[Rfam]
RNA sequence: GAAGCAAGCCAGACCGCCGCUGGUGCAAUUCCGCAAGGACGGGGCGCAAGCCCCCGGGUCGAAAGGCCGCACUGGAGGAAGGUCCGGACUGCACAGGGCAGCGUAGGAGGUAACACCUCUCCGCCGUGAGGCGAGGAUCAGAGCAACAGAGACGAGCCGAUUCAGUUCGGGUGAAACGGGCAAUCUCUACGCGCAGCAACACCAAAUAGGCACACAUUGACCUGGCCCGGGGAGUGUGCGGGUAGGUGGCAUCGAGCCGUUCUGGUGACAGGCGGCCCAGAGGAAUGGCGGUCACGCCGGGCAUCCUUCGGGAUUCCCCGGUGCACAGAAUCCGGCCUACCGGCUUGCUUCACAC
Number, nucleotide and partner (000 for none) at each position: 001g351002a350003a349004g348005c347006a346007a345008g344009c343010c342011a000012g293013a292014c291015c290016g289017c288018c287019g000020c075021u074022g073023g072024u071025g070026c069027a000028a000029u000030u000031c000032c000033g000034c000035a000036a000037g000038g000039a000040c000041g000042g000043g000044g000045c000046g000047c000048a000049a000050g000051c000052c000053c000054c000055c000056g000057g000058g000059u000060c000061g000062a000063a000064a000065g000066g000067c000068c000069g026070c025071a024072c023073u022074g021075g020076a000077g000078g000079a000080a338081g337082g336083u000084c335085c334086g333087g332088a331089c196090u195091g194092c193093a000094c000095a000096g228097g227098g226099c225100a000101g192102c191103g190104u189105a188106g120107g119108a118109g117110g116111u000112a000113a000114c000115a000116c110117c109118u108119c107120u106121c135122c133123g132124c131125c130126g000127u000128g000129a000130g125131g124132c123133g122134a000135g121136g187137a186138u000139c000140a000141g185142a184143g181144c180145a000146a000147c000148a000149g000150a000151g000152a000153c000154g000155a000156g000157c170158c169159g168160a167161u000162u000163c000164a000165g000166u000167u160168c159169g158170g157171g000172u000173g000174a000175a000176a000177c000178g000179g000180g144181c143182a000183a000184u142185c141186u137187c136188u105189a104190c103191g102192c101193g092194c091195a090196g089197c000198a000199a000200c248201a247202c246203c245204a000205a000206a000207u000208a000209g000210g239211c238212a237213c236214a235215c234216a000217u000218u000219g000220a000221c231222c230223u229224g000225g099226c098227c097228c096229g223230g222231g221232g000233a000234g215235u214236g213237u212238g211239c210240g000241g000242g000243u000244a000245g203246g202247u201248g200249g000250c000251a000252u000253c000254g000255a000256g276257c275258c274259g273260u000261u272262c271263u270264g269265g000266u000267g000268a000269c264270a263271g262272g261273c259274g258275g257276c256277c000278c000279a000280g000281a000282g000283g000284a000285a000286u000287g018288g017289c016290g015291g014292u013293c012294a000295c000296g000297c000298c000299g000300g000301g000302c000303a000304u000305c000306c000307u000308u000309c000310g000311g000312g000313a000314u000315u000316c000317c000318c000319c000320g000321g000322u000323g000324c000325a000326c000327a000328g000329a000330a000331u088332c087333c086334g085335g084336c082337c081338u080339a000340c000341c000342g010343g009344c008345u007346u006347g005348c004349u003350u002351c001352a000353c000354a000355c000

Bacterial RNase P class A: a 355-nucleotide sequence from Sphaerotilus hippei. The family's consensus secondary structure is taken from published work. Gene Ontology terms of the family: tRNA processing, ribonuclease P activity and dimeric ribonuclease P complex.